RNA sequence: CUUCACCGACCCCAGCCACAACGGCGACUCCCGGUCCUGACCGUAGGCGGCCAGCAGCGCCUGGGCCUC
Numbered sequence: 001c002u003u004c005a006c007c008g009a010c011c012c013c014a015g016c017c018a019c020a021a022c023g024g025c026g027a028c029u030c031c032c033g034g035u036c037c038u039g040a041c042c043g044u045a046g047g048c049g050g051c052c053a054g055c056a057g058c059g060c061c062u063g064g065g066c067c068u069c
Stems, first nucleotide, its partner, number of pairs: 015025003028065003032059002037054003041050003
Dot-bracket structure: ..............(((.....)))..(((.((...(((.(((....))).)))...))...)))....

This 69-nucleotide RNA sequence from Nonomuraea wenchangensis belongs to the Rfam family "ASpks TB sRNA". Pairs were carried over by alignment from the consensus structure, which is taken from published work.